[Rfam]
RNA sequence: AUAAAGGACUUCUCUUGUGAGCAGCAUGUGUAGGACAGUUCCAUAUCUCUUCUUGCAGAAUUGACAUCAAGAGAUUUUAGAAGCAUGAUUUUUGUACCUGGGCAGCUGGUGAUUGUUGGUCUCAGUGCCUCC
Number, nucleotide and partner (000 for none) at each position: 001a000002u000003a000004a000005a000006g000007g000008a000009c083010u082011u081012c080013u026014c000015u024016u023017g022018u000019g000020a000021g000022c017023a016024g015025c000026a013027u055028g054029u000030g052031u000032a050033g049034g048035a000036c000037a000038g044039u000040u000041c000042c000043a000044u038045a000046u000047c000048u034049c033050u032051u000052c030053u000054u028055g027056c000057a078058g077059a076060a075061u074062u073063g000064a000065c000066a000067u000068c000069a000070a000071g000072a000073g062074a061075u060076u059077u058078u057079a000080g012081a011082a010083g009084c000085a000086u000087g000088a000089u000090u000091u000092u000093u000094g000095u000096a000097c000098c000099u000100g130101g129102g128103c127104a000105g126106c125107u124108g123109g122110u000111g121112a120113u119114u118115g000116u000117u000118g114119g113120u112121c111122u109123c108124a107125g106126u105127g103128c102129c101130u100131c000132c000
Shown here is a 132-nucleotide RNA sequence from Vulpes vulpes, a member of the family "U11 spliceosomal RNA". The literature on the family includes a 1988 paper in Proc Natl Acad Sci U S A by Montzka and Steitz, "Additional low-abundance human small nuclear ribonucleoproteins: U11, U12, etc". The source organism's lineage runs through Eukaryota, Tetrapoda, Eutheria, Boreoeutheria and Vulpes. Gene Ontology terms of the family: U11 snRNP, pre-mRNA 5'-splice site binding and mRNA 5'-splice site recognition. By type it is a spliceosomal small nuclear RNA.